[Rfam]
RNA: mir-14 microRNA precursor family
RNA sequence: UGUCGGGGAGAGAAAUCGACGAGGCUGUUUUAUUUAGUCAGUCUUUUUCUCUCUCCUAUA
Numbered sequence: 001u002g003u004c005g006g007g008g009a010g011a012g013a014a015a016u017c018g019a020c021g022a023g024g025c026u027g028u029u030u031u032a033u034u035u036a037g038u039c040a041g042u043c044u045u046u047u048u049c050u051c052u053c054u055c056c057u058a059u060a
Stems, first nucleotide, its partner, number of pairs: 001060003005056004010051004015046001018043003024038004